[Rfam]
RNA: Ribosomal protein L20 leader
Organism: Jeotgalibacillus campisalis
RNA sequence: UGGUAAAAGAAGAAGCGGCCCGCUUCUCACCUGACUGGCGCAACAUGCAGCUGACAGGUAACACGUGAUCCUAUAAGACAUUGUCUGUAUAGUAAGCACUGAUGCGGGAAACAGCUUAGUUUCCGGCUUUUUUUGUGUGAU
Numbered sequence: 001u002g003g004u005a006a007a008a009g010a011a012g013a014a015g016c017g018g019c020c021c022g023c024u025u026c027u028c029a030c031c032u033g034a035c036u037g038g039c040g041c042a043a044c045a046u047g048c049a050g051c052u053g054a055c056a057g058g059u060a061a062c063a064c065g066u067g068a069u070c071c072u073a074u075a076a077g078a079c080a081u082u083g084u085c086u087g088u089a090u091a092g093u094a095a096g097c098a099c100u101g102a103u104g105c106g107g108g109a110a111a112c113a114g115c116u117u118a119g120u121u122u123c124c125g126g127c128u129u130u131u132u133u134u135g136u137g138u139g140a141u
Stems, first nucleotide, its partner, number of pairs: 011027006029059003037052003040048002104127002107124006